[Rfam]
The family of this 87-nucleotide RNA sequence from Pieris brassicae is "mir-274 microRNA precursor family". Pairs were carried over by alignment from the consensus structure, which was predicted with RNAalifold. Rfam links the family to the GO terms RISC complex and miRNA-mediated post-transcriptional gene silencing. On this family, see Lai et al., Genome Biol 2003: "Computational identification of Drosophila microRNA genes". NCBI's taxonomy places the organism under Eukaryota, Ecdysozoa, Mandibulata, Eumetabola, Pieris.

RNA sequence: UAGUUAGCGAAGUUGGUUUGUGACCGUCACUAACGGGCAGUUCGGCUAUUUGCUCGUUUUGACGAUCGCAAAAUGAACUCGCUUGAC
Numbered sequence: 001u002a003g004u005u006a007g008c009g010a011a012g013u014u015g016g017u018u019u020g021u022g023a024c025c026g027u028c029a030c031u032a033a034c035g036g037g038c039a040g041u042u043c044g045g046c047u048a049u050u051u052g053c054u055c056g057u058u059u060u061g062a063c064g065a066u067c068g069c070a071a072a073a074u075g076a077a078c079u080c081g082c083u084u085g086a087c
Stems, first nucleotide, its partner, number of pairs: 004085001006083005013076003017072007025064002032058008